[Rfam]
RNA sequence: CUGAAUAUUUAAAUCCGAGCUUUUUAUUCUAAAGGAAGCUGCCCAUGAAUACUAAGCCUAAACCGGAGGGUUUACGGGGUUAGACAGGAAACGGUCUGGCCUUCACUUGUGAGAAGGAUGAUGCUUAAAAAC
Numbered sequence: 001c002u003g004a005a006u007a008u009u010u011a012a013a014u015c016c017g018a019g020c021u022u023u024u025u026a027u028u029c030u031a032a033a034g035g036a037a038g039c040u041g042c043c044c045a046u047g048a049a050u051a052c053u054a055a056g057c058c059u060a061a062a063c064c065g066g067a068g069g070g071u072u073u074a075c076g077g078g079g080u081u082a083g084a085c086a087g088g089a090a091a092c093g094g095u096c097u098g099g100c101c102u103u104c105a106c107u108u109g110u111g112a113g114a115a116g117g118a119u120g121a122u123g124c125u126u127a128a129a130a131a132c
Base pairs, nucleotide, nucleotide: 013119014118015117016116019057020056021055022054025051026050027049028048029047034043035042059074060073061072062071063070077102078101079100080099081098082097083096084095085094087092103112104111
RNA: Molybdenum/Tungsten riboswitch aptamer (Moco RNA motif)
Organism: Desulfosporosinus youngiae